Shown here is a 78-nucleotide sequence from Schistosoma bovis, a member of the family "mir-3492 microRNA precursor family".
RNA sequence: AGCUUUCUGAAUCCGUGCUGAUAUUUCGUCAGACAAUAACCCAUUAGGGCUGAUCAUAAUUCCAAGAUAAGUGAAGUU
Numbered sequence: 001a002g003c004u005u006u007c008u009g010a011a012u013c014c015g016u017g018c019u020g021a022u023a024u025u026u027c028g029u030c031a032g033a034c035a036a037u038a039a040c041c042c043a044u045u046a047g048g049g050c051u052g053a054u055c056a057u058a059a060u061u062c063c064a065a066g067a068u069a070a071g072u073g074a075a076g077u078u
Stems, first nucleotide, its partner, number of pairs: 002077005008071001011068003016064002020061003024058001026056001028054003

Its family is annotated with miRNA-mediated post-transcriptional gene silencing and RISC complex in the Gene Ontology. Taxonomically the source falls in Schistosoma (Eukaryota, Eumetazoa, Lophotrochozoa, Strigeidida).